[Rfam]
RNA sequence: UUGCCCUGCGGAAUGCUCGGGUCCGCCGCAUCUCCUGGGCCCGCAGGUCUGGUCGGCGGGCGAUGGCUCGGAAGGCCUCUCCGUCCCAUCGCCCGCCGAUUCCAGA
Numbered sequence: 001u002u003g004c005c006c007u008g009c010g011g012a013a014u015g016c017u018c019g020g021g022u023c024c025g026c027c028g029c030a031u032c033u034c035c036u037g038g039g040c041c042c043g044c045a046g047g048u049c050u051g052g053u054c055g056g057c058g059g060g061c062g063a064u065g066g067c068u069c070g071g072a073a074g075g076c077c078u079c080u081c082c083g084u085c086c087c088a089u090c091g092c093c094c095g096c097c098g099a100u101u102c103c104a105g106a
Stems, first nucleotide, its partner, number of pairs: 003049001005047006016039006051101011

A member of the RNA family "EcpR1" from Ancylobacter novellus, 106 nucleotides long.
Rfam classes the family as a small RNA.
Rfam's curators write: Perviously named SmelC291, SmrC10, or Sra33. According to its overproduction phenotype it was renamed Elongated Cell Phenotype RNA1. Induced by stress,EcpR1 negatively regulates cell cycle master regulatory genes dnaA and gcrA at post-transcriptional level by base pairing between its strongly conserved GC-rich loop and the target mRNAs. It's regulation is hfq-independent but requires RNase E to regulate dnaA.
The sequence is in the family's curated seed alignment.
Pairs were carried over by alignment from the consensus structure, which was predicted with WAR.
Gene Ontology terms of the family: regulation of translation in response to stress, negative regulation of cell cycle and mRNA binding.